RNA sequence: GCUGUUUUAGGGUAGGAGGAAGAGAGGUGUUACCUUAUGAACGGCCACCUCUCUCAUCCUCUCCUCUGCAGGAGC
Numbered sequence: 001g002c003u004g005u006u007u008u009a010g011g012g013u014a015g016g017a018g019g020a021a022g023a024g025a026g027g028u029g030u031u032a033c034c035u036u037a038u039g040a041a042c043g044g045c046c047a048c049c050u051c052u053c054u055c056a057u058c059c060u061c062u063c064c065u066c067u068g069c070a071g072g073a074g075c
Stems, first nucleotide, its partner, number of pairs: 001075003005071002008068003011064002014060004019055002022053008031044001035040001